[Rfam]
RNA: CRISPR RNA direct repeat element
Organism: Kouleothrix aurantiaca
RNA sequence: GUACAAUGAAUUGCCCCGCUACGAAGGGGUUUGAAAC
Numbered sequence: 001g002u003a004c005a006a007u008g009a010a011u012u013g014c015c016c017c018g019c020u021a022c023g024a025a026g027g028g029g030u031u032u033g034a035a036a037c
Stems, first nucleotide, its partner, number of pairs: 012033002014029004